[Rfam]
RNA sequence: UGCGCUGGAUGGUAUCUGCACCUAACAGCUAUUUACUGGUGGAGUGUUCAUAAAACAGCGCUAGAAUAAGUCAGCAUCUGACAUCGUUGGUUUUCAGACUUCCUGUGUCUGUCAUACUUGGUUUUUCUGCUGAUACAUUC
Numbered sequence: 001u002g003c004g005c006u007g008g009a010u011g012g013u014a015u016c017u018g019c020a021c022c023u024a025a026c027a028g029c030u031a032u033u034u035a036c037u038g039g040u041g042g043a044g045u046g047u048u049c050a051u052a053a054a055a056c057a058g059c060g061c062u063a064g065a066a067u068a069a070g071u072c073a074g075c076a077u078c079u080g081a082c083a084u085c086g087u088u089g090g091u092u093u094u095c096a097g098a099c100u101u102c103c104u105g106u107g108u109c110u111g112u113c114a115u116a117c118u119u120g121g122u123u124u125u126u127c128u129g130c131u132g133a134u135a136c137a138u139u140c
Stems, first nucleotide, its partner, number of pairs: 002061006015054001017052001018047004023042001024040001026038003065128001068125003071121004080109005
RNA: Small nucleolar RNA SNORA8